[Rfam]
RNA sequence: UAAAUUCAAAUAUCCCGUUUAAUCGCUCAUCUAUUAAAAUCAAUAGUAGAAUGUAGUUUCAUACCCGGGAGAAAUUC
Numbered sequence: 001u002a003a004a005u006u007c008a009a010a011u012a013u014c015c016c017g018u019u020u021a022a023u024c025g026c027u028c029a030u031c032u033a034u035u036a037a038a039a040u041c042a043a044u045a046g047u048a049g050a051a052u053g054u055a056g057u058u059u060c061a062u063a064c065c066c067g068g069g070a071g072a073a074a075u076u077c
Stems, first nucleotide, its partner, number of pairs: 013070005020063002025057003028053003031049006
RNA: Small nucleolar RNA snR86, nucleotides 928 to 1004